[Rfam]
RNA sequence: GGCGUAAAGCGUACGCAGGCGGUUUGUUAAGCGAGAUGUGAAAGCCCCGGGCUCAACCUGGGAACUGCAUUUCGAACUGGCAAACUAGAGUAUGAUAGAGGGUGGUAGAAUUUCAGGUGUAGCGGUGAAAUGCGUAGAGAUCUGAAGGAAUACCGAUGGCGAAGGCAGCCACCUGGGUCAAUACUGACGCUCAUGUACGAAAGCGUGGGGAGCAAACGGGAUUAGAUACCCCGGUAGUCCACGCCGUAAACGAUGUCUACUAGGAGCUGGGGUCUUCGGACAACUUUUCCAAAGCUAACGCAUUAAGUAGACCGCCUGGGGAGUACGGCCGCAAGGUUAAAACUCAAAUGAAU
Numbered sequence: 001g002g003c004g005u006a007a008a009g010c011g012u013a014c015g016c017a018g019g020c021g022g023u024u025u026g027u028u029a030a031g032c033g034a035g036a037u038g039u040g041a042a043a044g045c046c047c048c049g050g051g052c053u054c055a056a057c058c059u060g061g062g063a064a065c066u067g068c069a070u071u072u073c074g075a076a077c078u079g080g081c082a083a084a085c086u087a088g089a090g091u092a093u094g095a096u097a098g099a100g101g102g103u104g105g106u107a108g109a110a111u112u113u114c115a116g117g118u119g120u121a122g123c124g125g126u127g128a129a130a131u132g133c134g135u136a137g138a139g140a141u142c143u144g145a146a147g148g149a150a151u152a153c154c155g156a157u158g159g160c161g162a163a164g165g166c167a168g169c170c171a172c173c174u175g176g177g178u179c180a181a182u183a184c185u186g187a188c189g190c191u192c193a194u195g196u197a198c199g200a201a202a203g204c205g206u207g208g209g210g211a212g213c214a215a216a217c218g219g220g221a222u223u224a225g226a227u228a229c230c231c232c233g234g235u236a237g238u239c240c241a242c243g244c245c246g247u248a249a250a251c252g253a254u255g256u257c258u259a260c261u262a263g264g265a266g267c268u269g270g271g272g273u274c275u276u277c278g279g280a281c282a283a284c285u286u287u288u289c290c291a292a293a294g295c296u297a298a299c300g301c302a303u304u305a306a307g308u309a310g311a312c313c314g315c316c317u318g319g320g321g322a323g324u325a326c327g328g329c330c331g332c333a334a335g336g337u338u339a340a341a342a343c344u345c346a347a348a349u350g351a352a353u
Stems, first nucleotide, its partner, number of pairs: 001316003009313001011198004018191003022085007030078002032074009046062006089185003093180004100174007107151001111147008122133003159166002203244006212238002217233004255312006263290004269284001272281003294301002318345003327338004
RNA: Bacterial small subunit ribosomal RNA, nucleotides 559 to 911